[Rfam]
RNA sequence: ACGACCUUACUUGAACAGGAUCUGUUCUAUAGGCUCGUACCUCUGUAUUCUUGAUUCCUCAAGAGACAGAAACCCAUGUCUGGUUGAUGCAUCAUGACCAUGUGACUAGAGCGUGAUUAACCGAGCCUUAUGGUCUCGGCCAUGGCUCUGUAGAGGAUCGUUGCCAGCCCAUCUUGAUGGGUCUCGGCAUGGUCACAUGGUUAUCUGACAGACA
Numbered sequence: 001a002c003g004a005c006c007u008u009a010c011u012u013g014a015a016c017a018g019g020a021u022c023u024g025u026u027c028u029a030u031a032g033g034c035u036c037g038u039a040c041c042u043c044u045g046u047a048u049u050c051u052u053g054a055u056u057c058c059u060c061a062a063g064a065g066a067c068a069g070a071a072a073c074c075c076a077u078g079u080c081u082g083g084u085u086g087a088u089g090c091a092u093c094a095u096g097a098c099c100a101u102g103u104g105a106c107u108a109g110a111g112c113g114u115g116a117u118u119a120a121c122c123g124a125g126c127c128u129u130a131u132g133g134u135c136u137c138g139g140c141c142a143u144g145g146c147u148c149u150g151u152a153g154a155g156g157a158u159c160g161u162u163g164c165c166a167g168c169c170c171a172u173c174u175u176g177a178u179g180g181g182u183c184u185c186g187g188c189a190u191g192g193u194c195a196c197a198u199g200g201u202u203a204u205c206u207g208a209c210a211g212a213c214a
Base pairs, nucleotide, nucleotide: 001038002037003035005033006032007031013027014026015025016024017023018022043069044068045067046066048064049063051061053059078213079212080211081210082209097201098200099199100198101197102196103195104194105193106192107191108190110162111161112160113159120151121150123148124147125146126145127144130143131142132141133140134139164187165186167184169180170179171178172177
RNA: Plant small nucleolar RNA U3